This 188-nucleotide sequence from Brevibacillus sp. SYP-B805 belongs to the Rfam family "Lysine riboswitch aptamer". Pairs were carried over by alignment from the consensus structure, which is taken from published work. The match comes from Rfam's covariance-model search (123 bits).

RNA sequence: GAGUGAGGUAGAGGCGCGAAAACCAUCAGUAUCCUCUGCGAGAUUGGGAGUCGGUGACCAGAGGGGAAAGGGGAAUUCGCCGAAGUGCGGUACGUCACCCAAGGCGUCCGUGCUGGGCCUGCGUUGAAUAAGCGCAGGACUGUCAUCCGGCCAGAUACCCGCUGUCCGGAUGGAGCGCUAUCUCACCG
Numbered sequence: 001g002a003g004u005g006a007g008g009u010a011g012a013g014g015c016g017c018g019a020a021a022a023c024c025a026u027c028a029g030u031a032u033c034c035u036c037u038g039c040g041a042g043a044u045u046g047g048g049a050g051u052c053g054g055u056g057a058c059c060a061g062a063g064g065g066g067a068a069a070g071g072g073g074a075a076u077u078c079g080c081c082g083a084a085g086u087g088c089g090g091u092a093c094g095u096c097a098c099c100c101a102a103g104g105c106g107u108c109c110g111u112g113c114u115g116g117g118c119c120u121g122c123g124u125u126g127a128a129u130a131a132g133c134g135c136a137g138g139a140c141u142g143u144c145a146u147c148c149g150g151c152c153a154g155a156u157a158c159c160c161g162c163u164g165u166c167c168g169g170a171u172g173g174a175g176c177g178c179u180a181u182c183u184c185a186c187c188g
Base pairs, nucleotide, nucleotide: 006183007182008181009180010179011178016080017079018078019077020076023073024072032065033064034063035062036061037060038059084114085113086112087111088110089109090108092107093106094105095104096103115141116140118138119137120136121135122134123133124132125131143173144172145171146170147169148168149167